[Rfam]
RNA: bZIP non canonical Hac1/Xbp1 intron
Organism: Coleophoma cylindrospora
RNA sequence: AGUUCUACCGAUAUGACACAACAUCCUGCCGCGAUGUUGUGCGACCUGCAGUGUCAGUCGGUAGAACA
Dot-bracket structure: .(((((..((((.......((((((.......))))))....(((.......))).))))..))))).
Numbered sequence: 001a002g003u004u005c006u007a008c009c010g011a012u013a014u015g016a017c018a019c020a021a022c023a024u025c026c027u028g029c030c031g032c033g034a035u036g037u038u039g040u041g042c043g044a045c046c047u048g049c050a051g052u053g054u055c056a057g058u059c060g061g062u063a064g065a066a067c068a
Stems, first nucleotide, its partner, number of pairs: 002067005009060004020038006043055003